[Rfam]
RNA: Makes More Granules Regulator RNA (mmgR)
RNA sequence: ACCGGCUGCCUCCGGGCGUUUCCUCCCUGUACUUGGCCCCGUCAGCACCAGCUGGCGGGGUCUUUUUCAUUGCAC
Dot-bracket structure: .......(((....)))...................(((((((((......)))))))))...............